RNA: Small nucleolar RNA SNORD58
RNA sequence: CUGCAGUGAUGACUUUCUUAGGACACCUUUGGAUUUACCAUGAAAAUGAACAAGUUCUGAGCAGU
Numbered sequence: 001c002u003g004c005a006g007u008g009a010u011g012a013c014u015u016u017c018u019u020a021g022g023a024c025a026c027c028u029u030u031g032g033a034u035u036u037a038c039c040a041u042g043a044a045a046a047u048g049a050a051c052a053a054g055u056u057c058u059g060a061g062c063a064g065u
Stems, first nucleotide, its partner, number of pairs: 001064004